Source information: The family of this 134-nucleotide RNA from Molossus molossus is "Small nucleolar RNA SNORA42/SNORA80 family". The family has 21 seed sequences and 1,535 matches in Rfam 15.1. By type it is an H/ACA-box small nucleolar RNA. The base pairs follow the family's consensus structure, which was predicted with RNAalifold. The literature on the family includes a 2006 paper in RNA by Schattner et al., "A computational screen for mammalian pseudouridylation guide H/ACA RNAs". The members of this family belong to the H/ACA class of snoRNAs that guide the sites of modification of uridines to pseudouridines. Human ACA42 (SNORA42) was cloned from HeLa cells by immunoprecipitation with anti-GAR1 antibody. Its is predicted to guide the pseudouridylation of residues U109 and U572 of 18S rRNA. ACA42 shares the same host gene with ACA26, ACA46, ACA50. This family also includes mammalian snoRNA ACA67 (SNORA80) which was identified by computational screening and its expression in mouse experimentally verified by Northern blot and primer extension analysis. ACA67 is proposed to guide the pseudouridylation of the same 18S rRNA residues as ACA42.
[Rfam]
RNA sequence: ACAUGUGUUUGGGUUUAUGUCAGCCCUGUCCCCCUGGGUCUCUCAGAGUGCCCCAUGCCAGAGCAAACUGUGACUUUGAACUACUGCCUGGCUUCUGUCUGUAGGCUGCAGGCACUAAAGUGGUUUGCACAGUG
Numbered sequence: 001a002c003a004u005g006u007g008u009u010u011g012g013g014u015u016u017a018u019g020u021c022a023g024c025c026c027u028g029u030c031c032c033c034c035u036g037g038g039u040c041u042c043u044c045a046g047a048g049u050g051c052c053c054c055a056u057g058c059c060a061g062a063g064c065a066a067a068c069u070g071u072g073a074c075u076u077u078g079a080a081c082u083a084c085u086g087c088c089u090g091g092c093u094u095c096u097g098u099c100u101g102u103a104g105g106c107u108g109c110a111g112g113c114a115c116u117a118a119a120g121u122g123g124u125u126u127g128c129a130c131a132g133u134g
Stems, first nucleotide, its partner, number of pairs: 002057003005053001007051002015048002018045002022041002025037002071127003075123002082117002087112002089108006